[Rfam]
Nucleotides: 114
Base pairs, nucleotide, nucleotide: 014097015096017094018093019092020091021090022089023088025086026085027084028083030081032079033078034077035076036075037074041070
Number, partner (000 for none) and nucleotide at each position: 001000a002000a003000a004000g005000g006000c007000a008000g009000a010000c011000g012000a013000a014097a015096g016000a017094c018093a019092g020091g021090g022089a023088a024000c025086a026085g027084g028083c029000u030081g031000a032079g033078c034077a035076u036075g037074g038000a039000u040000g041070g042000c043000u044000c045000u046000a047000a048000c049000c050000a051000a052000c053000a054000g055000c056000u057000u058000u059000c060000u061000g062000u063000u064000g065000u066000u067000u068000c069000u070041c071000c072000g073000c074037c075036c076035a077034u078033g079032c080000a081030c082000u083028g084027c085026c086025u087000c088023u089022u090021c091020c092019c093018u094017g095000g096015c097014u098000c099000u100000g101000c102000c103000a104000c105000c106000u107000c108000c109000c110000u111000u112000u113000u114000c
The family of this 114-nucleotide RNA sequence from Hibiscus syriacus is "MIR408 microRNA precursor family". A reference for the family is Mica et al. (2009), "High throughput approaches reveal splicing of primary microRNA transcripts and tissue specific expression of mature microRNAs in Vitis vinifera", BMC Genomics. Lineage of the source: Eukaryota > Viridiplantae > Tracheophyta > Mesangiospermae > Hibiscus.